[Rfam]
Nucleotides: 119
Stems, first nucleotide, its partner, number of pairs: 001019004007034007035102004039097008049070008073086004105119005
Number, partner (000 for none) and nucleotide at each position: 001019a002018g003017g004016u005000g006000a007034u008033a009032u010031c011030u012029c013028c014000u015000a016004a017003c018002c019001u020000u021000u022000a023000u024000c025000a026000a027000u028013g029012g030011a031010g032009g033008u034007a035102c036101u037100c038099g039097g040096c041095u042094g043093u044092g045091c046090u047000g048000u049070g050069g051068g052067a053066a054065a055064g056063c057000u058000g059000u060000c061000a062000g063056g064055c065054u066053u067052u068051c069050c070049u071000u072000a073086g074085g075084c076083g077000c078000c079000u080000u081000g082000u083076c084075g085074c086073c087000a088000g089000u090046g091045g092044u093043g094042c095041a096040g097039u098000g099038u100037g101036a102035g103000g104000a105119u106118a107117g108116g109115u110000u111000a112000a113000a114000u115109g116108c117107c118106u119105a